Shown here is a 124-nucleotide sequence from Algibacter luteus, a member of the family "Flavo-1 RNA".
By type it is a small RNA.
A search with the family's covariance model found it, with a score of 55 bits.
The family's consensus secondary structure is taken from published work.

[Rfam]
RNA sequence: UUAUAACAAAUUCGCGUUAAGGAUAGAAGCGGCAUCCUUUUUUGUUGGCUCGAGUAUUUUGUGAAGUAUGAACAAAAUAUAACGAGAACUAACAAAAAAGAUAUAGCGGAUAGCCUGACCCUUG
Numbered sequence: 001u002u003a004u005a006a007c008a009a010a011u012u013c014g015c016g017u018u019a020a021g022g023a024u025a026g027a028a029g030c031g032g033c034a035u036c037c038u039u040u041u042u043u044g045u046u047g048g049c050u051c052g053a054g055u056a057u058u059u060u061g062u063g064a065a066g067u068a069u070g071a072a073c074a075a076a077a078u079a080u081a082a083c084g085a086g087a088a089c090u091a092a093c094a095a096a097a098a099a100g101a102u103a104u105a106g107c108g109g110a111u112a113g114c115c116u117g118a119c120c121c122u123u124g
Stems, first nucleotide, its partner, number of pairs: 020116003024112002029107002034102003040097008
Dot-bracket structure: ...................(((.((...((...(((...((((((((..........................................))))))))..)))...))...)).)))........